[Rfam]
RNA sequence: CCCUCCAUAGCUCAGUGGUAGAGCGGUCGGCUGUAGCUUGAAUCCUACGAAAGUAGAAACCGACAGGCCGUGUGUUCAAAUCACACUGGAGGGA
Numbered sequence: 001c002c003c004u005c006c007a008u009a010g011c012u013c014a015g016u017g018g019u020a021g022a023g024c025g026g027u028c029g030g031c032u033g034u035a036g037c038u039u040g041a042a043u044c045c046u047a048c049g050a051a052a053g054u055a056g057a058a059a060c061c062g063a064c065a066g067g068c069c070g071u072g073u074g075u076u077c078a079a080a081u082c083a084c085a086c087u088g089g090a091g092g093g094a
Base pairs, nucleotide, nucleotide: 001093002092003091004090005089006088007087010024011023012022013021026064027063028062029061030060070086071085072084073083074082
A member of the RNA family "tRNA" from a Microcaldota archaeon, 94 nucleotides long. The family's consensus secondary structure is taken from published work. On this family, see Lowe and Eddy, Nucleic Acids Res 1997: "tRNAscan-SE: a program for improved detection of transfer RNA genes in genomic sequence". Lineage of the source: Archaea > Nanobdellati > Microcaldota.